Nucleotides: 075
Base pairs, nucleotide, nucleotide: 014026015025016024017023031071033069038065039064043060044059045058047056049054
Number, partner (000 for none) and nucleotide at each position: 001000c002000u003000u004000c005000a006000g007000c008000g009000a010000c011000c012000c013000c014026a015025g016024c017023c018000a019000c020000a021000a022000c023017g024016g025015c026014u027000g028000g029000u030000c031071u032000u033069c034000g035000c036000g037000c038065c039064g040000g041000c042000c043060u044059u045058g046000u047056c048000c049054g050000u051000a052000g053000g054049u055000c056047g057000c058045c059044a060043a061000g062000a063000u064039c065038g066000c067000c068000u069033g070000u071031g072000c073000c074000u075000c
Rfam assigns this 75-nucleotide RNA sequence from Streptomyces bingchenggensis to the family "ASpks TB sRNA".
Rfam classes the family as an antisense RNA.
Taxonomically the source falls in Streptomyces bingchenggensis (Bacteria, Actinomycetota, Streptomycetaceae, Streptomyces).
A search with the family's covariance model found it, with a score of 80 bits.